Background:
Rfam assigns this 77-nucleotide RNA sequence from Sarcophilus harrisii to the family "Small nucleolar RNA SNORD83".
[Rfam]
RNA sequence: GCCACAUGAUGUGUUCAUGUUAAAAUGGAGCAUCUAAGUGCCAAGACAACUCAAUCUAUCACCCAUGACUAAUGGUU
Numbered sequence: 001g002c003c004a005c006a007u008g009a010u011g012u013g014u015u016c017a018u019g020u021u022a023a024a025a026u027g028g029a030g031c032a033u034c035u036a037a038g039u040g041c042c043a044a045g046a047c048a049a050c051u052c053a054a055u056c057u058a059u060c061a062c063c064c065a066u067g068a069c070u071a072a073u074g075g076u077u
Stems, first nucleotide, its partner, number of pairs: 001076004030041003034038001
Dot-bracket structure: ((((.........................(((.(...))))...............................)))).

The organism belongs to Sarcophilus, within Eukaryota. The literature on the family includes a 2000 paper in Nucleic Acids Res by Jady and Kiss, "Characterisation of the U83 and U84 small nucleolar RNAs: two novel 2'-O-ribose methylation guide RNAs that lack complementarities to ribosomal RNAs". The base pairs follow the family's consensus structure, which was predicted with PFOLD.